TPP riboswitch aptamer (THI element): a 92-nucleotide sequence from Lacticaseibacillus casei. Gene Ontology term of the family: thiamine pyrophosphate binding. NCBI's taxonomy places the organism under Bacteria, Bacillati, Bacillota, Bacilli, Lacticaseibacillus. The base pairs follow the family's consensus structure, which is taken from published work.

RNA sequence: ACCUUCACAAAGGGGAGCCAUUGGCUGAGAACGGGGAAACCCGGACCCUUCGAACCUGUUCGUUAAUGCGAGCGUAGGGAUUUGUGAAUGGU
Numbered sequence: 001a002c003c004u005u006c007a008c009a010a011a012g013g014g015g016a017g018c019c020a021u022u023g024g025c026u027g028a029g030a031a032c033g034g035g036g037a038a039a040c041c042c043g044g045a046c047c048c049u050u051c052g053a054a055c056c057u058g059u060u061c062g063u064u065a066a067u068g069c070g071a072g073c074g075u076a077g078g079g080a081u082u083u084g085u086g087a088a089u090g091g092u
Stems, first nucleotide, its partner, number of pairs: 006086005011050004017025003032043004055078004061072001062069001